[Rfam]
RNA sequence: CGCAUACCAGGAAAUGGUGUCUUCCUGCACAAGAACCGUCUCAUCCGUCAGGAUGAAGUCUGAUGGCGCCUGCAAAUAG
Number, nucleotide and partner (000 for none) at each position: 001c000002g000003c000004a000005u000006a000007c000008c000009a000010g025011g024012a023013a022014a000015u000016g070017g069018u068019g067020u066021c065022u013023u012024c011025c010026u000027g000028c000029a000030c000031a000032a000033g000034a000035a000036c000037c000038g060039u000040c058041u057042c000043a000044u000045c000046c000047g000048u000049c000050a000051g000052g000053a000054u000055g000056a000057a041058g040059u000060c038061u000062g000063a000064u000065g021066g020067c019068g018069c017070c016071u000072g000073c000074a000075a000076a000077u000078a000079g000